[Rfam]
RNA: Small nucleolar RNA SNORD87
RNA sequence: GCUGGCAUAAUGAUGAUGACCACUCUUUGCCGUUUACCCAGCUGAGUUUUGUGAUGAGCAAGGUUGUAUCUGAUGUGCCAGC
Numbered sequence: 001g002c003u004g005g006c007a008u009a010a011u012g013a014u015g016a017u018g019a020c021c022a023c024u025c026u027u028u029g030c031c032g033u034u035u036a037c038c039c040a041g042c043u044g045a046g047u048u049u050u051g052u053g054a055u056g057a058g059c060a061a062g063g064u065u066g067u068a069u070c071u072g073a074u075g076u077g078c079c080a081g082c
Stems, first nucleotide, its partner, number of pairs: 001082007